[Rfam]
RNA sequence: AUUUAAAUUCAAGGUAUACCUUGAAUUUAAAUUCAAGGUAUACCUUGAAUUUAAAU
Dot-bracket structure: ((((((((.((((.(((((((((..........))))))))).)))).))))))))
RNA: mir-7883 microRNA precursor family